[Rfam]
RNA: Fluoride riboswitch aptamer (crcB RNA motif)
RNA sequence: AUUGCUUACGGAGAUGGCAUUCCUCCGAUAAACGCCGGCGCUCAGCCGGAUGAUGAUGCCUGCAUGAUC
Numbered sequence: 001a002u003u004g005c006u007u008a009c010g011g012a013g014a015u016g017g018c019a020u021u022c023c024u025c026c027g028a029u030a031a032a033c034g035c036c037g038g039c040g041c042u043c044a045g046c047c048g049g050a051u052g053a054u055g056a057u058g059c060c061u062g063c064a065u066g067a068u069c
Stems, first nucleotide, its partner, number of pairs: 010026004016060006035049005